[Rfam]
The family of this 262-nucleotide RNA sequence from Nestor notabilis is "Small Cajal body specific RNA 6". Gene Ontology terms of the family: nucleolus and RNA processing. It scores 87 bits against the family's covariance model. The literature on the family includes a 2002 paper in EMBO J by Darzacq et al., "Cajal body-specific small nuclear RNAs: a novel class of 2'-O-methylation and pseudouridylation guide RNAs". The organism belongs to Nestor, within Eukaryota. Rfam classes the family as a small Cajal body RNA. U88 is small Cajal body specific RNA (scaRNA). scaRNAs are a novel class of small nuclear RNAs which localise to the Cajal bodies. U88 is found associated with both fibrillarin and Gar1p and co-localises with coilin in Cajal bodies.
RNA sequence: GAUCUGUGAUGAAUAGUAAAAGGUCUGAUUACUCUAAAGACUUGCACUUCCACGACCUUUCUUCCCAGCAGUUUCUCACCAGUCGCAGCACAGUAAUGGUGUGGCUGGCAGUGUUUGCUGGCACCUUGUGAUGUGUGCGGUUCAUGCUAACCUGAACUAUCAGAGCCAUGGCUGGGAUCAGCAUCCAACAGUCAUACUUGAAGGAGUUUGAGGUCUUGGAUUGUUCUAACUUAGACAUGUGAUCUGACUUUCUGCUGAGACC
Numbered sequence: 001g002a003u004c005u006g007u008g009a010u011g012a013a014u015a016g017u018a019a020a021a022g023g024u025c026u027g028a029u030u031a032c033u034c035u036a037a038a039g040a041c042u043u044g045c046a047c048u049u050c051c052a053c054g055a056c057c058u059u060u061c062u063u064c065c066c067a068g069c070a071g072u073u074u075c076u077c078a079c080c081a082g083u084c085g086c087a088g089c090a091c092a093g094u095a096a097u098g099g100u101g102u103g104g105c106u107g108g109c110a111g112u113g114u115u116u117g118c119u120g121g122c123a124c125c126u127u128g129u130g131a132u133g134u135g136u137g138c139g140g141u142u143c144a145u146g147c148u149a150a151c152c153u154g155a156a157c158u159a160u161c162a163g164a165g166c167c168a169u170g171g172c173u174g175g176g177a178u179c180a181g182c183a184u185c186c187a188a189c190a191g192u193c194a195u196a197c198u199u200g201a202a203g204g205a206g207u208u209u210g211a212g213g214u215c216u217u218g219g220a221u222u223g224u225u226c227u228a229a230c231u232u233a234g235a236c237a238u239g240u241g242a243u244c245u246g247a248c249u250u251u252c253u254g255c256u257g258a259g260a261c262c
Stems, first nucleotide, its partner, number of pairs: 001262001003260002038245003042241001049220004054215002062206004066120006079108009128186001130185005143170004147163002150160001